The family of this 91-nucleotide RNA sequence from Ethanoligenens harbinense is "c-di-GMP-I riboswitch aptamer". Rfam links the family to the GO term cyclic-di-GMP binding.
RNA sequence: UAUUGUAAAUAGCAAACUUGUCGAAAGGCAGGGGCGCAAAGCUACGGGUCUAAUGCUUCCGUUCGGAAGCGAUGAUCGCCGGGUUGCCAUU
Numbered sequence: 001u002a003u004u005g006u007a008a009a010u011a012g013c014a015a016a017c018u019u020g021u022c023g024a025a026a027g028g029c030a031g032g033g034g035c036g037c038a039a040a041g042c043u044a045c046g047g048g049u050c051u052a053a054u055g056c057u058u059c060c061g062u063u064c065g066g067a068a069g070c071g072a073u074g075a076u077c078g079c080c081g082g083g084u085u086g087c088c089a090u091u
Stems, first nucleotide, its partner, number of pairs: 012037002017032006040085004045081003048076003055070006